Shown here is a 350-nucleotide sequence from Acidiluteibacter ferrifornacis, a member of the family "Bacterial RNase P class A".
[Rfam]
RNA sequence: AGAGCAAACUAUUCUAUCGCUCUAUUAGAAAUAAUUAGAGAGGAAAGUCCGGGCAACAAAGAGCACCGCACCUUAGAGAAACUAAGGGCAUGCUUUCGAAAUAAAGCAUGACAGAAAGUGCAACAGAAAGUAGACCGUCUCGUUUCGGCGAGUUAAGGGUGAAACGGUGAGGUAAGAGCUCACCAGUAUUAUCAGUAAUGGUGAUAGCUAGGUAAACCUUGCGGGUUGAAAAGUCAAAUAAACCGGGGCUUGAGGGUUGCUCGCCUGAUCCCGGAGGGUAGACCGAUUAGAUAAAUGAUAGAAGUCCAUUUAGGUGGAAACAGAACCCGGCUUAUAGGUUUGUUUUAUUA
Numbered sequence: 001a002g003a004g005c006a007a008a009c010u011a012u013u014c015u016a017u018c019g020c021u022c023u024a025u026u027a028g029a030a031a032u033a034a035u036u037a038g039a040g041a042g043g044a045a046a047g048u049c050c051g052g053g054c055a056a057c058a059a060a061g062a063g064c065a066c067c068g069c070a071c072c073u074u075a076g077a078g079a080a081a082c083u084a085a086g087g088g089c090a091u092g093c094u095u096u097c098g099a100a101a102u103a104a105a106g107c108a109u110g111a112c113a114g115a116a117a118g119u120g121c122a123a124c125a126g127a128a129a130g131u132a133g134a135c136c137g138u139c140u141c142g143u144u145u146c147g148g149c150g151a152g153u154u155a156a157g158g159g160u161g162a163a164a165c166g167g168u169g170a171g172g173u174a175a176g177a178g179c180u181c182a183c184c185a186g187u188a189u190u191a192u193c194a195g196u197a198a199u200g201g202u203g204a205u206a207g208c209u210a211g212g213u214a215a216a217c218c219u220u221g222c223g224g225g226u227u228g229a230a231a232a233g234u235c236a237a238a239u240a241a242a243c244c245g246g247g248g249c250u251u252g253a254g255g256g257u258u259g260c261u262c263g264c265c266u267g268a269u270c271c272c273g274g275a276g277g278g279u280a281g282a283c284c285g286a287u288u289a290g291a292u293a294a295a296u297g298a299u300a301g302a303a304g305u306c307c308a309u310u311u312a313g314g315u316g317g318a319a320a321c322a323g324a325a326c327c328c329g330g331c332u333u334a335u336a337g338g339u340u341u342g343u344u345u346u347a348u349u350a
Stems, first nucleotide, its partner, number of pairs: 001346010011335001012303007020040005026034001028032001045333003049330005054228004061262004066224005071087005088112001089110008113219002118217002120213002135158002137154001139152005166184006186208001187206008233283003243274005254266004
Lineage of the source: Bacteria > Pseudomonadati > Flavobacteriia > Flavobacteriales > Acidiluteibacter.